[Rfam]
Annotation:
Shown here is a 123-nucleotide sequence from Peterkaempfera bronchialis, a member of the family "Streptomyces-metH RNA". By type it is a small RNA. The base pairs follow the family's consensus structure, which is taken from published work. A search with the family's covariance model found it, with a score of 80 bits. The organism belongs to Peterkaempfera, within Bacteria.

Nucleotides: 123
Stems, first nucleotide, its partner, number of pairs: 060086004066079004089103002092101003
Number, partner (000 for none) and nucleotide at each position: 001000c002000c003000g004000c005000c006000c007000a008000g009000g010000a011000u012000a013000c014000g015000g016000a017000a018000c019000a020000c021000c022000c023000u024000c025000g026000g027000u028000c029000g030000c031000u032000c033000g034000g035000c036000c037000c038000c039000c040000g041000g042000c043000c044000g045000g046000a047000u048000a049000c050000g051000c052000u053000g054000g055000c056000c057000g058000g059000g060086u061085g062084c063083g064000g065000c066079c067078c068077c069076g070000a071000g072000c073000c074000g075000a076069c077068g078067g079066g080000g081000c082000c083063c084062g085061c086060a087000u088000a089103g090102c091000c092101g093100a094099c095000a096000g097000c098000c099094g100093u101092c102090g103089c104000a105000c106000u107000c108000a109000g110000g111000g112000a113000g114000c115000a116000u117000c118000a119000c120000c121000a122000u123000g